[Rfam]
RNA sequence: AGACCACACGCAGAAUCGCACAUUGAAGCAACACAAAUCUACGAUGAGGCUGUUUGUUAAACAGACCUCAACCGAAACAUAAUUGCAAUGCUUUAGGGAAAGUCCCCGGACCUCAUGGUAGAAAGUAUCACCAAUAAUGACUGGUCUGUCUGAGUCGCGAGAGAUUUGAUCGUUUUGAUCGGGCUGAGAUCGCUUUCUCUGAUUGCGAGAUGCUCCUCAACGAUCUGAUUUCGUGGUUCAGUGAUUGUCAUCAUGUUACAGUUAUGCGAUUGUGGUUGUCCUUCAUAAGAUGAUCAUAACUCAACGGGGCUCACUCGCGACGUGGUC
Numbered sequence: 001a002g003a004c005c006a007c008a009c010g011c012a013g014a015a016u017c018g019c020a021c022a023u024u025g026a027a028g029c030a031a032c033a034c035a036a037a038u039c040u041a042c043g044a045u046g047a048g049g050c051u052g053u054u055u056g057u058u059a060a061a062c063a064g065a066c067c068u069c070a071a072c073c074g075a076a077a078c079a080u081a082a083u084u085g086c087a088a089u090g091c092u093u094u095a096g097g098g099a100a101a102g103u104c105c106c107c108g109g110a111c112c113u114c115a116u117g118g119u120a121g122a123a124a125g126u127a128u129c130a131c132c133a134a135u136a137a138u139g140a141c142u143g144g145u146c147u148g149u150c151u152g153a154g155u156c157g158c159g160a161g162a163g164a165u166u167u168g169a170u171c172g173u174u175u176u177g178a179u180c181g182g183g184c185u186g187a188g189a190u191c192g193c194u195u196u197c198u199c200u201g202a203u204u205g206c207g208a209g210a211u212g213c214u215c216c217u218c219a220a221c222g223a224u225c226u227g228a229u230u231u232c233g234u235g236g237u238u239c240a241g242u243g244a245u246u247g248u249c250a251u252c253a254u255g256u257u258a259c260a261g262u263u264a265u266g267c268g269a270u271u272g273u274g275g276u277u278g279u280c281c282u283u284c285a286u287a288a289g290a291u292g293a294u295c296a297u298a299a300c301u302c303a304a305c306g307g308g309g310c311u312c313a314c315u316c317g318c319g320a321c322g323u324g325g326u327c
Stems, first nucleotide, its partner, number of pairs: 002327006009319003014271006023096007044080003050074001101311002104309004117129004130145004135140001161232006168225006181215004198208002273296008
A member of the RNA family "RNase MRP" from Lobosporangium transversale, 327 nucleotides long. Taxonomically the source falls in Lobosporangium (Eukaryota, Opisthokonta, Mortierellomycetes, Mortierellales). The family is grouped with related families in Rfam's "RNaseP clan". It is annotated as a ribozyme. From the family's description: RNase MRP is an enzymatically active ribonucleoprotein with two distinct roles in eukaryotes. In mitochondria it plays a direct role in the initiation of mitochondrial DNA replication. In the nucleus it is involved in precursor rRNA processing, where it cleaves the internal transcribed spacer 1 between 18S and 5.8S rRNAs. Despite distinct functions, RNase MRP has been shown to be evolutionarily related to RNase P. Like eukaryotic RNase P, RNase MRP is not catalytically active without associated protein subunits. A search with the family's covariance model found it, with a score of 108 bits.